The family of this 75-nucleotide RNA sequence from Sapayoa aenigma is "mir-216 microRNA precursor family".
The family is grouped with related families in Rfam's "mir-216 clan".
On this family, see Shao et al., Gene 2008: "Identification of novel chicken microRNAs and analysis of their genomic organization".
The family's consensus secondary structure was predicted with WAR.
[Rfam]
RNA sequence: AAUUGGCUUAAUCUCAGCUGGCAACUGUGAGCAGUUAAUAACUCUCCCACAGCUGUGGCUGGGAUUACGCUAAAC
Numbered sequence: 001a002a003u004u005g006g007c008u009u010a011a012u013c014u015c016a017g018c019u020g021g022c023a024a025c026u027g028u029g030a031g032c033a034g035u036u037a038a039u040a041a042c043u044c045u046c047c048c049a050c051a052g053c054u055g056u057g058g059c060u061g062g063g064a065u066u067a068c069g070c071u072a073a074a075c
Stems, first nucleotide, its partner, number of pairs: 003073005009067009021056002026051004031046001